[Rfam]
RNA: U12 minor spliceosomal RNA
RNA sequence: UUGCCUUAAACUAAUGAGUAAGGAAAACAAUGCGAGUGGUCGAUGCCAUUCGCAGCACUCCUAGAGUGCGACUCUAAUUUUUAGGGGGCGAUAGGCUAGCCAGGCGGUGACGCUGCUUACUUCGCAGAACUCGCCUGCGCAGGCCUCCUUC
Number, nucleotide and partner (000 for none) at each position: 001u000002u000003g000004c023005c022006u021007u020008a019009a000010a000011c000012u000013a000014a000015u000016g000017a000018g000019u008020a007021a006022g005023g004024a000025a000026a000027a000028c000029a000030a000031u000032g053033c052034g051035a050036g049037u048038g047039g046040u000041c000042g000043a000044u000045g000046c039047c038048a037049u036050u035051c034052g033053c032054a000055g069056c068057a067058c066059u000060c000061c000062u000063a000064g000065a000066g058067u057068g056069c055070g000071a000072c000073u000074c000075u000076a000077a000078u000079u000080u000081u000082u000083a000084g000085g000086g151087g150088g149089c000090g147091a000092u000093a146094g145095g144096c143097u142098a000099g140100c000101c137102a136103g000104g134105c133106g132107g131108u000109g000110a000111c000112g000113c127114u126115g125116c124117u000118u000119a000120c000121u000122u000123c000124g116125c115126a114127g113128a000129a000130c000131u107132c106133g105134c104135c000136u102137g101138c000139g000140c099141a000142g097143g096144c095145c094146u093147c090148c000149u088150u087151c086